RNA sequence: UGUGGACAAGAAUGAUGAAUCAAUUAGAUGUGUGAAAGGAAAAUUUCUUUCAUGAACUGAGAUUUUGAGGCAUAUUAAUAUUCUGACUUGCCACU
Numbered sequence: 001u002g003u004g005g006a007c008a009a010g011a012a013u014g015a016u017g018a019a020u021c022a023a024u025u026a027g028a029u030g031u032g033u034g035a036a037a038g039g040a041a042a043a044u045u046u047c048u049u050u051c052a053u054g055a056a057c058u059g060a061g062a063u064u065u066u067g068a069g070g071c072a073u074a075u076u077a078a079u080a081u082u083c084u085g086a087c088u089u090g091c092c093a094c095u
Stems, first nucleotide, its partner, number of pairs: 002094004007090004

The family of this 95-nucleotide sequence from Camphora micrantha is "Small nucleolar RNA Z266".
The family has 11 seed sequences and 719 matches in Rfam 15.1.
A reference for the family is Chen et al. (2003), "The high diversity of snoRNAs in plants: identification and comparative study of 120 snoRNA genes from Oryza sativa", Nucleic Acids Res.
Rfam links the family to the GO terms nucleolus and RNA processing.
The organism belongs to Camphora, within Eukaryota.